[Rfam]
Nucleotides: 368
Stems, first nucleotide, its partner, number of pairs: 001364009011353001013331006020039002023036004044351003048348005053213004062263001066208004070084005085101001086099004102204002107202001109198003123144002125140006152170006173192003177188004217289004228279005256271005296315004301310003
Number, partner (000 for none) and nucleotide at each position: 001364c002363u003362a004361u005360a006359a007358a008357c009356c010000c011353g012000a013331a014330c015329u016328a017327u018326c019000g020039c021038u022000g023036c024035g025034u026033u027000u028000u029000a030000a031000g032000u033026a034025a035024c036023g037000g038021g039020g040000a041000g042000g043000a044351a045350a046349g047000u048348c049347u050346g051345g052344a053213c054212a055211g056210c057000a058000u059000a060000g061000a062263g063000c064000a065000a066208c067207c068206c069205g070084c071083c072082g073081g074080u075000g076000a077000a078000c079000a080074g081073c082072c083071g084070g085101g086099a087098u088097c089096u090000g091000g092000c093000a094000a095000c096089a097088g098087g099086u100000a101085c102204a103203g104000a105000a106000a107202g108000g109198g110197c111196c112000a113000c114000a115000g116000a117000a118000a119000a120000u121000a122000a123144c124143c125140g126139c127138c128137a129136c130135a131000g132000c133000a134000a135130u136129g137128u138127g139126g140125u141000a142000a143124g144123g145000g146000u147000g148000a149000a150000a151000a152170u153169g154168u155167g156166a157165g158000g159000u160000a161000a162000g163000a164000g165157c166156u167155c168154a169153c170152g171000c172000u173192g174191g175190u176000a177188c178187a179186u180185a181000g182000u183000a184000a185180u186179a187178u188177g189000g190175a191174u192173c193000a194000g195000g196111g197110g198109u199000a200000a201000a202107c203103c204102u205069c206068g207067g208066g209000a210056g211055c212054u213053g214000c215000a216000a217289u218288g219287c220286c221000a222000u223000g224000u225000a226000u227000a228279u229278g230277a231276u232275c233000g234000g235000u236000c237000g238000a239000a240000g241000g242000c243000g244000g245000c246000u247000c248000g249000u250000c251000u252000g253000a254000a255000u256271a257270u258269u259268u260267c261000c262000u263062u264000c265000g266000g267260g268259a269258a270257a271256u272000u273000a274000c275232g276231a277230u278229c279228a280000a281000g282000g283000g284000u285000a286220g287219g288218c289217a290000g291000u292000u293000a294000g295000a296315g297314c298313c299312a300000u301310a302309c303308a304000g305000u306000a307000a308303u309302g310301u311000c312299u313298g314297g315296c316000c317000u318000a319000g320000a321000u322000a323000a324000a325000u326018g327017a328016u329015a330014g331013u332000g333000u334000u335000g336000g337000a338000a339000c340000a341000g342000a343000a344052u345051c346050c347049g348048g349046c350045u351044u352000a353011u354000g355000a356009g357008g358007u359006u360005u361004a362003u363002a364001g365000u366000u367000u368000a
The record is a 368-nucleotide sequence from Rhizosphaericola mali, which matches "Bacterial RNase P class A" in Rfam. The match comes from Rfam's covariance-model search (232 bits).